[Rfam]
RNA: Plastid-psbA-3 3UTR RNA
RNA sequence: AAGGGAGCAAUAACCAACCUCUUGUUCUAUCAAGAGGGCAUUAUUGUUCCUUUACU
Numbered sequence: 001a002a003g004g005g006a007g008c009a010a011u012a013a014c015c016a017a018c019c020u021c022u023u024g025u026u027c028u029a030u031c032a033a034g035a036g037g038g039c040a041u042u043a044u045u046g047u048u049c050c051u052u053u054a055c056u
Base pairs, nucleotide, nucleotide: 001053002052003051004050005049006048007047008046009045010044011043012042013041019036020035021034022033023032024031